Notes:
Rfam assigns this 78-nucleotide RNA from Planktothrix agardhii to the family "Cyano-1 RNA". It scores 47 bits against the family's covariance model. It is annotated as a small RNA. The family has 265 seed sequences and 283 matches in Rfam 15.1.
RNA sequence: AGGAGUGUGAGGAGUGAAAUUAAUAAAGAAGAAGCACUUGGGGUCGAAACUCGGCCAGACUCCCAAGUGCUUUUUCCA
Number, nucleotide and partner (000 for none) at each position: 001a000002g000003g000004a000005g000006u000007g000008u000009g000010a000011g000012g000013a000014g000015u000016g000017a000018a000019a000020u000021u000022a000023a000024u000025a000026a000027a000028g000029a000030a000031g073032a072033a071034g070035c069036a000037c000038u066039u065040g064041g063042g062043g060044u059045c058046g000047a000048a000049a000050c000051u000052c000053g000054g000055c000056c000057a000058g045059a044060c043061u000062c042063c041064c040065a039066a038067g000068u000069g035070c034071u033072u032073u031074u000075u000076c000077c000078a000